[Rfam]
RNA: MIR2118 microRNA precursor family
RNA sequence: GUCGGGAAGAGGAAGAAAGAGGGUCUAAGAAUGCUGGGAAUGGGAACAUGGAGGAAACCUAAACCUUUUGUUUCCAUCGCUGACGAGGUGGAAAUUCGGCUGUGUGUUUCCCAAUGCCUCCCAUUCCUAAUAUUCUUAAUCACUCCUUCCUCUUCCUUUUGACU
Number, nucleotide and partner (000 for none) at each position: 001g000002u000003c000004g000005g000006g000007a000008a000009g155010a154011g153012g152013a151014a000015g149016a148017a147018a000019g145020a144021g143022g000023g000024u000025c000026u138027a137028a136029g135030a134031a133032u132033g131034c000035u129036g128037g127038g126039a125040a124041u123042g122043g121044g120045a119046a000047c116048a115049u114050g000051g112052a000053g111054g110055a109056a108057a107058c106059c000060u000061a000062a000063a000064c000065c000066u000067u000068u000069u000070g000071u000072u000073u000074c000075c000076a000077u000078c000079g000080c000081u000082g000083a000084c000085g000086a000087g000088g000089u000090g000091g000092a000093a000094a000095u000096u000097c000098g000099g000100c000101u000102g000103u000104g000105u000106g058107u057108u056109u055110c054111c053112c051113a000114a049115u048116g047117c000118c000119u045120c044121c043122c042123a041124u040125u039126c038127c037128u036129a035130a000131u033132a032133u031134u030135c029136u028137u027138a026139a000140u000141c000142a000143c021144u020145c019146c000147u017148u016149c015150c000151u013152c012153u011154u010155c009156c000157u000158u000159u000160u000161g000162a000163c000164u000